[Rfam]
The record is a 59-nucleotide RNA sequence from Streptomyces sp. ERV7, which matches "msiK RNA" in Rfam. The organism belongs to Streptomyces, within Bacteria. The family has 120 seed sequences and 1,374 matches in Rfam 15.1. A search with the family's covariance model found it, with a score of 49 bits.
RNA sequence: ACCACUUCUCCCUCUACUCGGAUCGUCCGGCACGUUCCUGCCGGUGAAGGGACAGGUCU
Numbered sequence: 001a002c003c004a005c006u007u008c009u010c011c012c013u014c015u016a017c018u019c020g021g022a023u024c025g026u027c028c029g030g031c032a033c034g035u036u037c038c039u040g041c042c043g044g045u046g047a048a049g050g051g052a053c054a055g056g057u058c059u
Base pairs, nucleotide, nucleotide: 010051011050012049013048015046016045027044028043029042030041031040032039